[Rfam]
RNA sequence: AUAUAAGCAAAGAUUCAUUUUUCAGAUUCAUUGAAUAAUUGAUGUAUCUGGUUUAUAUUAUGGACCAGAUACAUCAGUUAUUCAAUGAAUUUGAAAAAAGGAAUCUUUGCUUAUAU
Numbered sequence: 001a002u003a004u005a006a007g008c009a010a011a012g013a014u015u016c017a018u019u020u021u022u023c024a025g026a027u028u029c030a031u032u033g034a035a036u037a038a039u040u041g042a043u044g045u046a047u048c049u050g051g052u053u054u055a056u057a058u059u060a061u062g063g064a065c066c067a068g069a070u071a072c073a074u075c076a077g078u079u080a081u082u083c084a085a086u087g088a089a090u091u092u093g094a095a096a097a098a099a100g101g102a103a104u105c106u107u108u109g110c111u112u113a114u115a116u
Stems, first nucleotide, its partner, number of pairs: 002115006009108005015102002018098008027089018049067004
Dot-bracket structure: .((((((.(((((.((.((((((((.((((((((((((((((((....((((...........))))....)))))))))))))))))).))))))))..)).))))).)))))).

The family of this 116-nucleotide RNA sequence from Trifolium medium is "MIR2593 microRNA precursor family". The match comes from Rfam's covariance-model search (102 bits). The organism belongs to Trifolium, within Eukaryota. Gene Ontology terms of the family: miRNA-mediated post-transcriptional gene silencing and RISC complex.